[Rfam]
RNA sequence: AUGGCCUCUUUACGGUAAUGAGGGUUGUGGGUGGGCAGGAUGGCUCUUGUCCCCCCGUGGCUCUCGACCGUCUUGGGGCCC
Dot-bracket structure: ..((((((.....(((..((.((((((((((.((((((((....)))))))).)))))))))).))))).....)))))).
RNA: SL588 non-coding RNA
Organism: Orthohepacivirus hominis